[Rfam]
RNA sequence: GUUGAUCUAACGGGGUGCCGUUCGUCUUUUUGUGAGGCGGGCGGCUGAGAGGCUGUUGCAGGCCAACCCGAAGAACCUGAUCCGGUUUGUACCGGCGGAGGGAUUAGACGGCACGUUUCA
Numbered sequence: 001g002u003u004g005a006u007c008u009a010a011c012g013g014g015g016u017g018c019c020g021u022u023c024g025u026c027u028u029u030u031u032g033u034g035a036g037g038c039g040g041g042c043g044g045c046u047g048a049g050a051g052g053c054u055g056u057u058g059c060a061g062g063c064c065a066a067c068c069c070g071a072a073g074a075a076c077c078u079g080a081u082c083c084g085g086u087u088u089g090u091a092c093c094g095g096c097g098g099a100g101g102g103a104u105u106a107g108a109c110g111g112c113a114c115g116u117u118u119c120a
Stems, first nucleotide, its partner, number of pairs: 006108005011070004017045012052063003076101003082095004

TPP riboswitch aptamer (THI element): a 120-nucleotide RNA from Rhizobium sp. Root482.
NCBI's taxonomy places the organism under Bacteria, Pseudomonadati, Alphaproteobacteria, Hyphomicrobiales, Rhizobium.